[Rfam]
This 102-nucleotide RNA from Bacterioplanoides sp. SCSIO 12839 belongs to the Rfam family "t44 RNA". NCBI's taxonomy places the organism under Bacteria, Pseudomonadota, Oceanospirillales, Oceanospirillaceae, Bacterioplanoides. Rfam classes the family as a small RNA. The base pairs follow the family's consensus structure, which was predicted with LocARNA.
RNA sequence: CAUCCAGGAAUACUAAAACACACACGUAUCACAACGUGUUGCCGGGGUGCCUUAAUCAUAGUUAUGAAGCGGGUCGGCAAGAUGGGUACGUGGAGGCCUAAC
Numbered sequence: 001c002a003u004c005c006a007g008g009a010a011u012a013c014u015a016a017a018a019c020a021c022a023c024a025c026g027u028a029u030c031a032c033a034a035c036g037u038g039u040u041g042c043c044g045g046g047g048u049g050c051c052u053u054a055a056u057c058a059u060a061g062u063u064a065u066g067a068a069g070c071g072g073g074u075c076g077g078c079a080a081g082a083u084g085g086g087u088a089c090g091u092g093g094a095g096g097c098c099u100a101a102c
Stems, first nucleotide, its partner, number of pairs: 023092008036083002039080006049074004